[Rfam]
RNA sequence: CUGUCUCUUGCUUCAACAGUGUUUGGAUGGAUAU
Numbered sequence: 001c002u003g004u005c006u007c008u009u010g011c012u013u014c015a016a017c018a019g020u021g022u023u024u025g026g027a028u029g030g031a032u033a034u
Stems, first nucleotide, its partner, number of pairs: 003034002006031003010028001012027005017021001